[Rfam]
RNA sequence: GCCGGUGUAGCUCAAUUGGCAGAGCAUUCGCCUUGUAAGCGAAAGGUUCCGGGUUCGAGUCCCGCCACCGGCU
Numbered sequence: 001g002c003c004g005g006u007g008u009a010g011c012u013c014a015a016u017u018g019g020c021a022g023a024g025c026a027u028u029c030g031c032c033u034u035g036u037a038a039g040c041g042a043a044a045g046g047u048u049c050c051g052g053g054u055u056c057g058a059g060u061c062c063c064g065c066c067a068c069c070g071g072c073u
Stems, first nucleotide, its partner, number of pairs: 001072007010025004027043005050064004
Rfam assigns this 73-nucleotide RNA sequence from Herbihabitans rhizosphaerae to the family "tRNA". The family's consensus secondary structure is taken from published work. Rfam's curators write: Transfer RNA (tRNA) molecules are approximately 80 nucleotides in length.